[Rfam]
Nucleotides: 068
Base pairs, nucleotide, nucleotide: 001054002053003052004051005050006049007048008047011022012021013020014019028045029044030043031042032041036068040064
Number, partner (000 for none) and nucleotide at each position: 001054u002053a003052a004051c005050c006049g007048g008047a009000u010000a011022g012021c013020c014019c015000g016000a017000c018000g019014g020013g021012g022011c023000a024000a025000c026000a027000a028045g029044c030043g031042g032041g033000a034000u035000u036068c037000g038000u039000c040064c041032c042031c043030c044029g045028u046000u047008u048007c049006c050005g051004g052003u053002u054001a055000a056000u057000c058000c059000c060000u061000u062000c063000g064040g065000a066000c067000g068036g

Shown here is a 68-nucleotide sequence from Methylomonas sp. LL1, a member of the family "int-alpA RNA". Acidobacteria (1 example), Planctomycetes (1 example), Proteobacteria. Pairs were carried over by alignment from the consensus structure, which is taken from published work. The organism belongs to Methylomonas, within Bacteria. By type it is a small RNA.